[Rfam]
This 87-nucleotide RNA sequence from Ictidomys tridecemlineatus belongs to the Rfam family "let-7 microRNA precursor family".
Its Rfam clan is "let-7 microRNA precursor clan".
This family represents the microRNAs (miRNA) let-7 and mir-98. let-7 was identified from a study of developmental timing in C. elegans, and was later shown to be part of a much larger class of non-coding RNAs termed miRNAs.
The family's consensus secondary structure was predicted with RNAalifold.
Taxonomically the source falls in Ictidomys (Eukaryota, Eumetazoa, Euteleostomi, Tetrapoda).

RNA sequence: GAAGAAAAAGCUAGAAGAUUGCAGUGUUCUGGGGAUUGGCAUUUCUCGUGGCCUGCCAGAACACUGCAAUCUUCUAACUUUUUCUUC
Numbered sequence: 001g002a003a004g005a006a007a008a009a010g011c012u013a014g015a016a017g018a019u020u021g022c023a024g025u026g027u028u029c030u031g032g033g034g035a036u037u038g039g040c041a042u043u044u045c046u047c048g049u050g051g052c053c054u055g056c057c058a059g060a061a062c063a064c065u066g067c068a069a070u071c072u073u074c075u076a077a078c079u080u081u082u083u084c085u086u087c
Stems, first nucleotide, its partner, number of pairs: 001087006008080003012076016032047004050057002